[Rfam]
RNA sequence: AUCAGGGCGGUGCUGGUCUUGUGCAGGAAGUCUCGGCGGGCGUCACGGACCUUACGGUGCGCGACCGCGACCUUCGUCUUUGCUUUACGCCGGUUCGCGGAACCCUUCUUCGCGCGGGCGAGACGGCGCUGAUACCGGGCCAGGUUGCAGGUCUUACGUUCCAGGUGCCGAGGGUUGGCGAUUCGGUCGCCGUCGGAGGUCACGGCGAAGUCUUUGAUCCCGAGGUCGAUACCGAUCUCAUGCCCGGCCGGGUUGAAGGGGGCGGGCUGGUCGGUGUCGACGGCCAGGGUGGCAUACCAGCGGCCGUCCGUGUCGCGGGAGAUGAUCACCAUGGUCGGGUCCAGGGUGGCCAGGUCCACCCCCGGCCAGGACCACGCCAGCCGCAACGGCCCGGCGGUCUUGGCCAUGAACACCUGGCCGUCCUUGAUCCGGAACGCCGACCGGGUGUAGUGCGCCAACUGCUUGCCGUCGCGGGAUUUGAAGCGGGGGUAGCGGGCGCGUUUGGCGAAGAAGUUGCCGAACGCGGUGUGCUGGUGCCGCAGCGUCUGCUGCAACGGCACGCUGGACACCUCGGACAGGAACGCCAGUUCGCCGG
Number, nucleotide and partner (000 for none) at each position: 001a000002u016003c015004a014005g013006g000007g000008c000009g000010g000011u000012g000013c005014u004015g003016g002017u580018c579019u578020u577021g576022u575023g033024c000025a031026g000027g000028a000029a000030g000031u025032c000033u023034c000035g000036g000037c000038g000039g000040g068041c067042g000043u000044c000045a000046c061047g060048g000049a058050c057051c056052u000053u000054a000055c000056g051057g050058u049059g000060c047061g046062c000063g000064a000065c000066c000067g041068c040069g146070a145071c144072c143073u142074u000075c000076g000077u138078c137079u000080u000081u000082g133083c000084u131085u000086u000087a000088c128089g127090c126091c125092g124093g000094u000095u121096c118097g000098c116099g115100g111101a110102a109103c000104c000105c000106u000107u000108c000109u102110u101111c100112g000113c000114g000115c099116g098117g000118g096119c000120g000121a095122g000123a000124c092125g091126g090127c089128g088129c000130u000131g084132a000133u082134a000135c000136c000137g078138g077139g000140c000141c000142a073143g072144g071145u070146u069147g000148c000149a213150g212151g211152u210153c000154u208155u207156a000157c205158g000159u000160u000161c204162c000163a000164g201165g000166u197167g000168c195169c000170g193171a000172g191173g190174g000175u000176u000177g000178g188179c000180g000181a000182u000183u000184c000185g000186g000187u000188c178189g000190c173191c172192g000193u170194c000195g168196g000197a166198g000199g000200u000201c164202a000203c000204g161205g157206c000207g155208a154209a000210g152211u151212c150213u149214u000215u000216g000217a000218u000219c000220c574221c573222g000223a571224g570225g569226u568227c000228g000229a000230u000231a000232c265233c264234g263235a000236u260237c259238u256239c255240a254241u000242g253243c252244c251245c250246g000247g000248c000249c000250g245251g244252g243253u242254u240255g239256a238257a000258g000259g237260g236261g000262g000263c234264g233265g232266g000267c000268u000269g000270g000271u000272c000273g000274g560275u559276g558277u557278c556279g000280a000281c551282g550283g549284c548285c000286a000287g545288g000289g543290u542291g000292g000293c000294a000295u536296a535297c534298c533299a532300g531301c530302g529303g527304c526305c525306g524307u523308c000309c000310g351311u000312g000313u000314c346315g000316c000317g000318g342319g341320a340321g000322a000323u337324g336325a335326u334327c000328a000329c000330c000331a000332u000333g000334g326335u325336c324337g323338g000339g000340u320341c319342c318343a000344g000345g000346g314347u000348g000349g000350c000351c310352a000353g000354g000355u000356c000357c000358a000359c471360c000361c000362c468363c000364g000365g464366c000367c461368a460369g459370g000371a000372c000373c454374a000375c452376g451377c450378c000379a000380g446381c445382c444383g000384c443385a000386a000387c000388g000389g442390c000391c000392c439393g438394g437395c436396g435397g000398u433399c000400u431401u000402g430403g429404c000405c426406a425407u000408g423409a000410a000411c000412a421413c420414c000415u000416g000417g000418c000419c000420g413421u412422c000423c408424u000425u406426g405427a000428u000429c403430c402431g400432g000433a398434a000435c396436g395437c394438c393439g392440a000441c000442c389443g384444g382445g381446u380447g000448u000449a000450g377451u376452g375453c000454g373455c000456c000457a000458a000459c369460u368461g367462c000463u000464u365465g000466c000467c000468g362469u000470c000471g359472c000473g517474g000475g515476a514477u513478u512479u511480g000481a000482a000483g000484c000485g000486g000487g503488g502489g501490u500491a000492g499493c498494g000495g000496g000497c000498g493499c492500g490501u489502u488503u487504g000505g000506c000507g000508a000509a000510g000511a479512a478513g477514u476515u475516g000517c473518c000519g000520a000521a000522c000523g307524c306525g305526g304527u303528g000529u302530g301531c300532u299533g298534g297535u296536g295537c000538c000539g000540c000541a000542g290543c289544g000545u287546c000547u000548g284549c283550u282551g281552c000553a000554a000555c000556g278557g277558c276559a275560c274561g000562c000563u000564g000565g000566a000567c000568a226569c225570c224571u223572c000573g221574g220575a022576c021577a020578g019579g018580a017581a000582c594583g593584c000585c591586a000587g000588u000589u000590c000591g585592c000593c583594g582595g000
Shown here is a 595-nucleotide RNA from Actinoplanes derwentensis, a member of the family "Saccharopolyspora sRNA 389". It scores 166 bits against the family's covariance model. Pairs were carried over by alignment from the consensus structure, which was predicted with RNAfold. Rfam 15.1 lists 93 matches to the family in 60 species. NCBI's taxonomy places the organism under Bacteria, Bacillati, Actinomycetes, Micromonosporales, Actinoplanes. Rfam classes the family as an antisense RNA.